[Rfam]
RNA: tRNA
RNA sequence: GCACGAGUAGCUCAGCGGUAGAGCGGCCCGCUUACACCGGGUUGGUCGGCGGUUCAAUCCCGUCCUCGUGUA
Dot-bracket structure: (((((((..((((.......)))).(((((.......))))).....(((((.......)))))))))))).